[Rfam]
RNA: Small nucleolar RNA SNORA15
Organism: Stegastes partitus
RNA sequence: GCAUGGCCGAAUUCUGUUCCAGCAAGUCUGUGGUGGAUACAGUCAGACACCAUGCAAAAGCCUCGUCUCAUUUCUACUAAAUGACUGGAUGUGUGUCUCGCCCAGCCUCAUCCAGCUGCACAGGAAUGAGUACAGUG
Numbered sequence: 001g002c003a004u005g006g007c008c009g010a011a012u013u014c015u016g017u018u019c020c021a022g023c024a025a026g027u028c029u030g031u032g033g034u035g036g037a038u039a040c041a042g043u044c045a046g047a048c049a050c051c052a053u054g055c056a057a058a059a060g061c062c063u064c065g066u067c068u069c070a071u072u073u074c075u076a077c078u079a080a081a082u083g084a085c086u087g088g089a090u091g092u093g094u095g096u097c098u099c100g101c102c103c104a105g106c107c108u109c110a111u112c113c114a115g116c117u118g119c120a121c122a123g124g125a126a127u128g129a130g131u132a133c134a135g136u137g
Base pairs, nucleotide, nucleotide: 001055002054003053004052005051006050014042015041016040017039068129070127071126072125073124074123075122082118083117085115086114087113088112089111090110091109